[Rfam]
The family of this 184-nucleotide RNA from Shimazuella alba is "6S / SsrS RNA".
It scores 81 bits against the family's covariance model.
Rfam's curators write: E. coli 6S RNA was the first non coding RNA to be sequenced, but its function was unknown until recently.
For this family Rfam cites "6S RNA regulates E. coli RNA polymerase activity" (Wassarman and Storz, Cell, 2000).
Lineage of the source: Bacteria > Bacillati > Bacilli > Thermoactinomycetaceae > Shimazuella.

RNA sequence: AAGACCCUGCGAUGUGCGAGGGCCACCGAAGUUUUGAGCCAACACAUUUUCUGCGGGAGCUUGGGUCAUCUAUUGGAUUGGGAGCCUUUAUUAGGAGGAUCUAUGAACAUAGGUGCAAAGCACCCACCUGCUUUUGAAUACGAGCAGGUUCAAAACUUAGGAGCCACGGCAUAACGGGGCUUUU
Numbered sequence: 001a002a003g004a005c006c007c008u009g010c011g012a013u014g015u016g017c018g019a020g021g022g023c024c025a026c027c028g029a030a031g032u033u034u035u036g037a038g039c040c041a042a043c044a045c046a047u048u049u050u051c052u053g054c055g056g057g058a059g060c061u062u063g064g065g066u067c068a069u070c071u072a073u074u075g076g077a078u079u080g081g082g083a084g085c086c087u088u089u090a091u092u093a094g095g096a097g098g099a100u101c102u103a104u105g106a107a108c109a110u111a112g113g114u115g116c117a118a119a120g121c122a123c124c125c126a127c128c129u130g131c132u133u134u135u136g137a138a139u140a141c142g143a144g145c146a147g148g149u150u151c152a153a154a155a156c157u158u159a160g161g162a163g164c165c166a167c168g169g170c171a172u173a174a175c176g177g178g179g180c181u182u183u184u
Stems, first nucleotide, its partner, number of pairs: 002182002005179005012172004017168002030157004035152006055125003059121004064116001066115001068114006080102002085098005